The family of this 75-nucleotide RNA from Heliconius melpomene is "mir-1 microRNA precursor family". The family's consensus secondary structure was predicted with RNAalifold. This family represents the microRNA (miRNA) mir-1 family. miRNAs are transcribed as ~70nt precursors (modelled here) and subsequently processed by the Dicer enzyme to give a ~22nt product. In this case the mature sequence comes from the 3' arm of the precursor. The extents of the hairpin precursors are not generally known and are estimated based on hairpin prediction. The family has 137 seed sequences and 4,474 matches in Rfam 15.1. A reference for the family is Ambros (2001), "microRNAs: tiny regulators with great potential", Cell.

RNA sequence: CGCGCAGCUCCAUACUUCUUUACAUUCCAUAUGAUAUCAAAUACUAUGGGAAGUAAGGAAGCACGGAACUCGCGC
Numbered sequence: 001c002g003c004g005c006a007g008c009u010c011c012a013u014a015c016u017u018c019u020u021u022a023c024a025u026u027c028c029a030u031a032u033g034a035u036a037u038c039a040a041a042u043a044c045u046a047u048g049g050g051a052a053g054u055a056a057g058g059a060a061g062c063a064c065g066g067a068a069c070u071c072g073c074g075c
Base pairs, nucleotide, nucleotide: 007069009067010066011065013063015061016060017059018058019057020056021055022054023053025051027049028048029047030046031045